RNA sequence: UGCAGCCUUGUCAAAUUCAGUCCCCGUCUUCUCCGUGGCGGGGACUGGCCUCUCUGGCUGCCACAGCAACUCUGUAACUCAUGGGCCCCACGGCUCUCCCCUGUGGGCCCUGGGGAUGAAAGCAUGCUACAGACACCA
Numbered sequence: 001u002g003c004a005g006c007c008u009u010g011u012c013a014a015a016u017u018c019a020g021u022c023c024c025c026g027u028c029u030u031c032u033c034c035g036u037g038g039c040g041g042g043g044a045c046u047g048g049c050c051u052c053u054c055u056g057g058c059u060g061c062c063a064c065a066g067c068a069a070c071u072c073u074g075u076a077a078c079u080c081a082u083g084g085g086c087c088c089c090a091c092g093g094c095u096c097u098c099c100c101c102u103g104u105g106g107g108c109c110c111u112g113g114g115g116a117u118g119a120a121a122g123c124a125u126g127c128u129a130c131a132g133a134c135a136c137c138a
Stems, first nucleotide, its partner, number of pairs: 002061004018047011074130003078126001079124001086115005

The record is a 138-nucleotide RNA from Sphenodon punctatus, which matches "Small nucleolar RNA SNORA5" in Rfam. Rfam 15.1 lists 2,226 matches to the family in 629 species. ACA5 is a member of the H/ACA class of snoRNA that guide the sites of modification of uridines to pseudouridines. It scores 95 bits against the family's covariance model. Pairs were carried over by alignment from the consensus structure, which was predicted with RNAfold. Taxonomically the source falls in Sphenodon (Eukaryota, Deuterostomia, Teleostomi, Sphenodontia). It is annotated as an H/ACA-box small nucleolar RNA.